[Rfam]
RNA sequence: GACUUCCUGGAAAAGCACUGUGUUAAAAUUAUCUGAACUUUGAAUCCAGGUUUCUGUAAUAAUGCUAGCAGAGUACACACAGGAAGAACAGCAAAUGCACAGGAUUGGUGACUUGGGCAGACCUCUUUUUUAAUGUCUGGUGCCCGGUGUCUUAAAGUCUAGUGCAAUAAUU
Numbered sequence: 001g002a003c004u005u006c007c008u009g010g011a012a013a014a015g016c017a018c019u020g021u022g023u024u025a026a027a028a029u030u031a032u033c034u035g036a037a038c039u040u041u042g043a044a045u046c047c048a049g050g051u052u053u054c055u056g057u058a059a060u061a062a063u064g065c066u067a068g069c070a071g072a073g074u075a076c077a078c079a080c081a082g083g084a085a086g087a088a089c090a091g092c093a094a095a096u097g098c099a100c101a102g103g104a105u106u107g108g109u110g111a112c113u114u115g116g117g118c119a120g121a122c123c124u125c126u127u128u129u130u131u132a133a134u135g136u137c138u139g140g141u142g143c144c145c146g147g148u149g150u151c152u153u154a155a156a157g158u159c160u161a162g163u164g165c166a167a168u169a170a171u172u
Base pairs, nucleotide, nucleotide: 018073019072021070022069023068024067025066028063029062030061031060035053037051038050039049040048042046096166097165098164099163100162102160103159104158116141118139119138120137121136

Rfam assigns this 172-nucleotide RNA sequence from Microcaecilia unicolor to the family "Small nucleolar RNA SNORA81". The organism belongs to Microcaecilia, within Eukaryota. It is annotated as an H/ACA-box small nucleolar RNA. Pairs were carried over by alignment from the consensus structure, which was predicted with WAR. A reference for the family is Gu et al. (2005), "A novel experimental approach for systematic identification of box H/ACA snoRNAs from eukaryotes", Nucleic Acids Res.